[Rfam]
RNA: Bacillus-plasmid RNA
Organism: Granulicatella sp. WM01
RNA sequence: AAAGUCAACGGUAGCGGACUGUAAGGAGCAUAAGGAGUUGACUUUUCUCUAGCU
Numbered sequence: 001a002a003a004g005u006c007a008a009c010g011g012u013a014g015c016g017g018a019c020u021g022u023a024a025g026g027a028g029c030a031u032a033a034g035g036a037g038u039u040g041a042c043u044u045u046u047c048u049c050u051a052g053c054u
Stems, first nucleotide, its partner, number of pairs: 001045009